Small nucleolar RNA snoR27: a 91-nucleotide RNA from Carpinus fangiana. For this family Rfam cites "Multiple snoRNA gene clusters from Arabidopsis" (Brown et al., RNA, 2001). It is annotated as a C/D-box small nucleolar RNA. Its Rfam clan is "snR68 clan". The base pairs follow the family's consensus structure, which was predicted with WAR. The family has 6 seed sequences and 649 matches in Rfam 15.1.

[Rfam]
RNA sequence: AAUGGAUCGAUGAUGUUUUUUUGAAACUGCGUUAUCUAUCUGCAACUUCCUAAAUGGAAUUGAAGAUAAUUAUAAAAUUCUGAGAUCCAAU
Dot-bracket structure: (.(((((.............................................................................))))).)